[Rfam]
RNA: Selenocysteine transfer RNA
Organism: Acetonema longum
RNA sequence: GGGGGUGGAUGGAACCUGGUGGUUUCUGCAGUCUUCAAAACUGUUUGUGGGGCAGUAUUCCUGUCCUUGGUGGGUUCGAUUCCUACACGCCCUC
Numbered sequence: 001g002g003g004g005g006u007g008g009a010u011g012g013a014a015c016c017u018g019g020u021g022g023u024u025u026c027u028g029c030a031g032u033c034u035u036c037a038a039a040a041c042u043g044u045u046u047g048u049g050g051g052g053c054a055g056u057a058u059u060c061c062u063g064u065c066c067u068u069g070g071u072g073g074g075u076u077c078g079a080u081u082c083c084u085a086c087a088c089g090c091c092c093u094c
Stems, first nucleotide, its partner, number of pairs: 001094007008086001011026006028044005047068001049066003071085004